[Rfam]
RNA sequence: GAAUUUCGCCAGAGCCGACCUCCUCCCCGGCAAUGGCGAAUAGAUCGGCCCCCUCCUCCUCCCUGGGGUCGAUCAGCAAAACGACACCCGCCGGACCUCCUCCCCCGGCGGGUGUUGUUU
Numbered sequence: 001g002a003a004u005u006u007c008g009c010c011a012g013a014g015c016c017g018a019c020c021u022c023c024u025c026c027c028c029g030g031c032a033a034u035g036g037c038g039a040a041u042a043g044a045u046c047g048g049c050c051c052c053c054u055c056c057u058c059c060u061c062c063c064u065g066g067g068g069u070c071g072a073u074c075a076g077c078a079a080a081a082c083g084a085c086a087c088c089c090g091c092c093g094g095a096c097c098u099c100c101u102c103c104c105c106c107g108g109c110g111g112g113u114g115u116u117g118u119u120u
Stems, first nucleotide, its partner, number of pairs: 007038003011034001014031004043074010084115011

Alphaproteobacterial ar14: a 120-nucleotide RNA sequence from Manganibacter manganicus. Gene Ontology term of the family: biological process involved in symbiotic interaction. Taxonomically the source falls in Manganibacter (Bacteria, Pseudomonadota, Hyphomicrobiales, Phyllobacteriaceae). About the family: Smr14C2 was renamed NfeR1 (Nodule Formation Efficiency RNA) highly expressed in salt stress and during the symbiotic interaction on legume roots. The pairing is the family consensus, mapped onto this sequence.